RNA sequence: CCCUCCGAAGUUUCCCUCAGGAUAGCUGGAGUACAUGCAGUCUUAUCCGGUAAAGCGAAUGAUUAGAGGAUUUGGGGAACAAAGUUCCUCGACCUAUUCUCAAACUUUAAACAGGUAAGGAGAAUAUGUUACUUAAUUGAACAUAUUCAGACGAUGCGAACUCUUAGUGGGCCAUUUUUGGUAAGCAGAACUGGCGAUGCGGGAUGAACCGAAAGCGGUGUUAAGGCGCCUAACUACGCGCUCAUUUAGACCCCAGGAAAGGUGUUGAUGCAUAUGGACAGCAGGACGGUGGUCAUGGAAGUCGACAUCCGCUAAGGAGUGUGUAACAACUCACCUGCCGAAUGCAUCAGCCCUGAAAAUGGAUGGCGCUUAAGCGCGUGGCCGAUACACUGCCAUCGAGACGAAGCCUAGGUUUCGAUGAGUAGGAGGGCGUCGUGCUCGUGUAGAAGCUUUGGACGUAAGUCUGAGUGGAACGGGCUCGAGUGCAGAU
Numbered sequence: 001c002c003c004u005c006c007g008a009a010g011u012u013u014c015c016c017u018c019a020g021g022a023u024a025g026c027u028g029g030a031g032u033a034c035a036u037g038c039a040g041u042c043u044u045a046u047c048c049g050g051u052a053a054a055g056c057g058a059a060u061g062a063u064u065a066g067a068g069g070a071u072u073u074g075g076g077g078a079a080c081a082a083a084g085u086u087c088c089u090c091g092a093c094c095u096a097u098u099c100u101c102a103a104a105c106u107u108u109a110a111a112c113a114g115g116u117a118a119g120g121a122g123a124a125u126a127u128g129u130u131a132c133u134u135a136a137u138u139g140a141a142c143a144u145a146u147u148c149a150g151a152c153g154a155u156g157c158g159a160a161c162u163c164u165u166a167g168u169g170g171g172c173c174a175u176u177u178u179u180g181g182u183a184a185g186c187a188g189a190a191c192u193g194g195c196g197a198u199g200c201g202g203g204a205u206g207a208a209c210c211g212a213a214a215g216c217g218g219u220g221u222u223a224a225g226g227c228g229c230c231u232a233a234c235u236a237c238g239c240g241c242u243c244a245u246u247u248a249g250a251c252c253c254c255a256g257g258a259a260a261g262g263u264g265u266u267g268a269u270g271c272a273u274a275u276g277g278a279c280a281g282c283a284g285g286a287c288g289g290u291g292g293u294c295a296u297g298g299a300a301g302u303c304g305a306c307a308u309c310c311g312c313u314a315a316g317g318a319g320u321g322u323g324u325a326a327c328a329a330c331u332c333a334c335c336u337g338c339c340g341a342a343u344g345c346a347u348c349a350g351c352c353c354u355g356a357a358a359a360u361g362g363a364u365g366g367c368g369c370u371u372a373a374g375c376g377c378g379u380g381g382c383c384g385a386u387a388c389a390c391u392g393c394c395a396u397c398g399a400g401a402c403g404a405a406g407c408c409u410a411g412g413u414u415u416c417g418a419u420g421a422g423u424a425g426g427a428g429g430g431c432g433u434c435g436u437g438c439u440c441g442u443g444u445a446g447a448a449g450c451u452u453u454g455g456a457c458g459u460a461a462g463u464c465u466g467a468g469u470g471g472a473a474c475g476g477g478c479u480c481g482a483g484u485g486c487a488g489a490u
Stems, first nucleotide, its partner, number of pairs: 001430006011024001013022003028164005041120007053108001054106002060102003065097001067095003072092006079085001122148009171195004176190005200211003215393005221387001225383003234380001236379001239376003260354003264351010281338005287311003292306003312316001317332001321330002394420009431485001433482003437478006449469002455464003
Shown here is a 490-nucleotide part of an RNA from Hemiselmis andersenii, a member of the family "Eukaryotic large subunit ribosomal RNA". It is one of the family's seed sequences. The source organism's lineage runs through Eukaryota, Cryptophyceae, Cryptomonadales, Hemiselmidaceae and Hemiselmis. The family is grouped with related families in Rfam's "LSU clan". The family's consensus secondary structure is taken from published work.